The family of this 362-nucleotide RNA sequence from Xanthobacter tagetidis is "Alphaproteobacteria transfer-messenger RNA". Bacterial tmRNA, also known as 10Sa RNA or SsrA, is named for its dual tRNA and mRNA-like properties. For this family Rfam cites "Phylogenetic analysis of tmRNA secondary structure" (Williams and Bartel, RNA, 1996).
[Rfam]
RNA sequence: CCCCUUUCAUCGGCGGGAGGGGCGGCCUAUAUUCCAAGGGCCGGCGCAAGCCGGCUAUGGCGAUAAACGGUUGUCGGAAUAAGCCUUUCGGACCCGGGGGCGGUACCCGGCGCCUCCACCAGAAUCCAUCGCGCUUCAGCGGGGUGGGUUCCGGCGGGGGCGAAAUAGGAUCGACGAGGGUGUAAAGGGCAUUCUUUUGCUCGGCAUGGUUCCGCCGUCAUCGGGCCGACCUAUAGUUGCGAAUGACAACUAUGCUCCGGUUGCUCAGGCCGCGUGAGCGGUUUGAAAGACCAAAUCAAAGUCCUCCCGGGUAGCACCGGAUAGGCGGGGUUCGGAGGCACCUGGCAACAGAAGCCUCCACU
Numbered sequence: 001c002c003c004c005u006u007u008c009a010u011c012g013g014c015g016g017g018a019g020g021g022g023c024g025g026c027c028u029a030u031a032u033u034c035c036a037a038g039g040g041c042c043g044g045c046g047c048a049a050g051c052c053g054g055c056u057a058u059g060g061c062g063a064u065a066a067a068c069g070g071u072u073g074u075c076g077g078a079a080u081a082a083g084c085c086u087u088u089c090g091g092a093c094c095c096g097g098g099g100g101c102g103g104u105a106c107c108c109g110g111c112g113c114c115u116c117c118a119c120c121a122g123a124a125u126c127c128a129u130c131g132c133g134c135u136u137c138a139g140c141g142g143g144g145u146g147g148g149u150u151c152c153g154g155c156g157g158g159g160g161c162g163a164a165a166u167a168g169g170a171u172c173g174a175c176g177a178g179g180g181u182g183u184a185a186a187g188g189g190c191a192u193u194c195u196u197u198u199g200c201u202c203g204g205c206a207u208g209g210u211u212c213c214g215c216c217g218u219c220a221u222c223g224g225g226c227c228g229a230c231c232u233a234u235a236g237u238u239g240c241g242a243a244u245g246a247c248a249a250c251u252a253u254g255c256u257c258c259g260g261u262u263g264c265u266c267a268g269g270c271c272g273c274g275u276g277a278g279c280g281g282u283u284u285g286a287a288a289g290a291c292c293a294a295a296u297c298a299a300a301g302u303c304c305u306c307c308c309g310g311g312u313a314g315c316a317c318c319g320g321a322u323a324g325g326c327g328g329g330g331u332u333c334g335g336a337g338g339c340a341c342c343u344g345g346c347a348a349c350a351g352a353a354g355c356c357u358c359c360a361c362u
Stems, first nucleotide, its partner, number of pairs: 040055005059201005069194002072191004084180003088177003094110005111162007202217004207228003211225003328343004334359006
It scores 301 bits against the family's covariance model. The family's consensus secondary structure is taken from published work. The family's RNA type in Rfam is non-coding RNA gene.